[Rfam]
RNA sequence: GUGAAGUGAUGAUGAAUCCAUUCUCAGAAGUGCUGCUGCAUUGGCCCUCCCUGCAGCAUGCAGAUUCCUGUUCUAGGGUCCCCGUGCUGUGCAGCCUCCAAAUACUCUCCAGCCUUUCAUUGUUCUGCUGGGAGCCGCUCGUGUGUCUGGCCAACUCUGUGCAGGAGAGGGGCAGAGCCAGCAGGGCGGGAGCCCCUCUUCAUGGGGGCUCUGUCUCAACUAAGAUGAGUGAUGCUGUCUGAUCAC
Number, nucleotide and partner (000 for none) at each position: 001g000002u000003g000004a000005a000006g000007u000008g000009a000010u245011g244012a243013u242014g000015a000016a000017u000018c000019c231020a230021u229022u228023c227024u000025c224026a000027g000028a000029a000030g220031u219032g000033c000034u000035g182036c181037u180038g179039c177040a000041u175042u174043g173044g000045c171046c170047c169048u168049c167050c000051c165052u163053g162054c000055a088056g087057c086058a085059u084060g083061c000062a000063g082064a000065u000066u078067c077068c076069u075070g000071u000072u000073c000074u000075a069076g068077g067078g066079u000080c000081c000082c063083c060084g059085u058086g057087c056088u055089g000090u000091g160092c159093a158094g157095c000096c000097u154098c000099c000100a000101a000102a000103u000104a144105c143106u141107c000108u000109c000110c137111a000112g136113c000114c134115u133116u132117u131118c130119a129120u000121u127122g126123u000124u000125c000126u122127g121128c000129u119130g118131g117132g116133a115134g114135c000136c112137g110138c000139u000140c000141g106142u000143g105144u104145g000146u000147c000148u000149g000150g000151c000152c000153a000154a097155c000156u000157c094158u093159g092160u091161g000162c053163a052164g000165g051166a000167g049168a048169g047170g046171g045172g000173c043174a042175g041176a000177g039178c000179c038180a037181g036182c035183a000184g217185g216186g215187c000188g000189g212190g211191a210192g000193c208194c207195c206196c205197u204198c000199u000200u000201c000202a000203u000204g197205g196206g195207g194208g193209c000210u191211c190212u189213g000214u000215c186216u185217c184218a000219a031220c030221u000222a000223a000224g025225a000226u000227g023228a022229g021230u020231g019232a000233u000234g000235c000236u000237g000238u000239c000240u000241g000242a013243u012244c011245a010246c000
RNA: Small nucleolar RNA SNORD17